[Rfam]
RNA: Small nucleolar RNA SNORA73 family
Organism: Mustela putorius
Nucleotides: 201
Stems, first nucleotide, its partner, number of pairs: 001103002006101002008045005014037003019030003048098004058090002060085001062083002065078001130193005136187001148178005157165003
Number, partner (000 for none) and nucleotide at each position: 001103c002102c003000a004000a005000u006101g007100u008045g009044g010043a011042u012041a013000u014037u015036c016035c017000u018000g019030g020029g021028a022000a023000g024000u025000c026000a027000c028021u029020c030019u031000c032000c033000c034000u035016g036015g037014a038000c039000u040000c041012u042011g043010u044009c045008c046000a047000g048098g049097u050096g051095g052000u053000g054000u055000a056000c057000a058090g059089g060085g061000a062083a063082u064000a065078a066000g067000g068000c069000u070000c071000u072000g073000c074000c075000c076000c077000a078065u079000g080000a081000a082063g083062u084000a085060c086000a087000g088000u089059c090058c091000c092000u093000u094000u095051c096050c097049a098048c099000g100007a101006c102002g103001g104000a105000g106000a107000u108000g109000a110000a111000g112000c113000c114000a115000g116000g117000a118000c119000u120000u121000g122000a123000a124000u125000c126000u127000g128000u129000g130193c131192c132191u133190g134189c135000u136187u137000a138000u139000u140000c141000c142000u143000a144000c145000a146000g147000c148178u149177u150176c151175u152174c153000a154000g155000a156000a157165u158164c159163c160000u161000c162000u163159g164158g165157a166000c167000u168000a169000u170000g171000a172000c173000c174152g175151a176150g177149g178148a179000c180000a181000c182000a183000a184000a185000c186000c187136g188000u189134g190133c191132a192131g193130g194000a195000a196000a197000c198000c199000a200000c201000u